Annotation
Shown here is a 102-nucleotide sequence from Filobacillus milosensis, a member of the family "Purine riboswitch aptamer". From the family's description: Riboswitches are metabolite binding domains within certain messenger RNAs that serve as precision sensors for their corresponding targets.
RNA sequence: AAAAUAAAAAUUGAAACACCUCGUAUAAUAUUGGGGAUACGGCCCAAGAGUUUCUACCGAGCCACCGUAAAUGGUUCGACUACGGGGAUUGCAUAUAUAUAA
Numbered sequence: 001a002a003a004a005u006a007a008a009a010a011u012u013g014a015a016a017c018a019c020c021u022c023g024u025a026u027a028a029u030a031u032u033g034g035g036g037a038u039a040c041g042g043c044c045c046a047a048g049a050g051u052u053u054c055u056a057c058c059g060a061g062c063c064a065c066c067g068u069a070a071a072u073g074g075u076u077c078g079a080c081u082a083c084g085g086g087g088a089u090u091g092c093a094u095a096u097a098u099a100u101a102a
Base pairs, nucleotide, nucleotide: 019087020086021085022084023083024082025081029049031047032046033045034044035043058078059077060076061075062074063073064072